[Rfam]
RNA sequence: AUCGAGGCUAGAGUCACGCUUGGGUAUAGGCUGUUGCCUCAGUGUGCUAGAGUCCUCGAAGAAUAACCACUGACCUUAUUCACUGGCUGUGGGCAUUGUGGCACAGCCAGUCACCAGGGUAGUAACAUGU
Numbered sequence: 001a002u003c004g005a006g007g008c009u010a011g012a013g014u015c016a017c018g019c020u021u022g023g024g025u026a027u028a029g030g031c032u033g034u035u036g037c038c039u040c041a042g043u044g045u046g047c048u049a050g051a052g053u054c055c056u057c058g059a060a061g062a063a064u065a066a067c068c069a070c071u072g073a074c075c076u077u078a079u080u081c082a083c084u085g086g087c088u089g090u091g092g093g094c095a096u097u098g099u100g101g102c103a104c105a106g107c108c109a110g111u112c113a114c115c116a117g118g119g120u121a122g123u124a125a126c127a128u129g130u
Base pairs, nucleotide, nucleotide: 002059003058004057005056006055007053008052009051012048013047015046016045017044018043019042020041023038024037025036026035070122071121072120074118075117076116082111083110084109085108086107088105089104090103091102
About this RNA:
This 130-nucleotide RNA sequence from Octodon degus belongs to the Rfam family "Small nucleolar RNA SNORA3/SNORA45 family". The match comes from Rfam's covariance-model search (116 bits). On this family, see Huttenhofer et al., EMBO J 2001: "RNomics: an experimental approach that identifies 201 candidates for novel, small, non-messenger RNAs in mouse". Taxonomically the source falls in Octodon (Eukaryota, Vertebrata, Mammalia, Hystricomorpha).